Purine riboswitch aptamer: a 102-nucleotide RNA from Weizmannia acidilactici. Lineage of the source: Bacteria > Bacillati > Bacilli > Caryophanales > Heyndrickxia. Its family is annotated with purine nucleobase biosynthetic process in the Gene Ontology.
RNA sequence: UAAAUUGAAUAGAAAUACCAUCGUAUAAAUUCAGGGAUAUGGCCUGAACGUUUCUACCAAGCUGCCGUAAAUAGCUUGACUACGAGGUAAUGAGAUAGAUUA
Dot-bracket structure: ..................(.(((((....((((((.......)))))).........(((((((.......)))))))..))))).)...............